A member of the RNA family "mir-30 microRNA precursor family" from Scyliorhinus torazame, 77 nucleotides long.
This family consists of the mammalian microRNA (miRNA) precursor mir-30a. Animal miRNAs are transcribed as ~70nt precursors and subsequently processed by the Dicer enzyme to give a ~22nt product. In this case the mature sequence comes from both the 3' (miR-30) and 5' (mir-97-6) arms of the precursor. The extents of the hairpin precursors are not generally known and are estimated based on hairpin prediction. The products are thought to have regulatory roles through complementarity to mRNA. The involvement of Dicer in miRNA processing suggests a relationship with the phenomenon of RNA interference. miRNAs are numbered based on the sequence of the mature RNA.
A search with the family's covariance model found it, with a score of 63 bits.
For this family Rfam cites "Identification of novel genes coding for small expressed RNAs" (Lagos-Quintana et al., Science, 2001).
Lineage of the source: Eukaryota > Metazoa > Vertebrata > Carcharhiniformes > Scyliorhinus.
Pairs were carried over by alignment from the consensus structure, which was predicted with PFOLD.
RNA sequence: UAUACUGUUGUAAACAUCCUUGACUGGAAGCUGUUUGGAGAUGGAUAGGCUUUCAGUCAGAUGUUUGCAGCUGUUGA
Numbered sequence: 001u002a003u004a005c006u007g008u009u010g011u012a013a014a015c016a017u018c019c020u021u022g023a024c025u026g027g028a029a030g031c032u033g034u035u036u037g038g039a040g041a042u043g044g045a046u047a048g049g050c051u052u053u054c055a056g057u058c059a060g061a062u063g064u065u066u067g068c069a070g071c072u073g074u075u076g077a
Base pairs, nucleotide, nucleotide: 004074005073008070009069010068011067012066013065014064015063016062017061018060023057024056025055026054027053028052029051030050031049032048